[Rfam]
RNA: bZIP non canonical Hac1/Xbp1 intron
RNA sequence: GUCUCCACCGACAUGACACAACGUCCUGCAGAGAUGUUGUGCGACCUGCCGUGUCAUUUGUCGAUGGAGAC
Numbered sequence: 001g002u003c004u005c006c007a008c009c010g011a012c013a014u015g016a017c018a019c020a021a022c023g024u025c026c027u028g029c030a031g032a033g034a035u036g037u038u039g040u041g042c043g044a045c046c047u048g049c050c051g052u053g054u055c056a057u058u059u060g061u062c063g064a065u066g067g068a069g070a071c
Stems, first nucleotide, its partner, number of pairs: 001071007009063005020038006043055003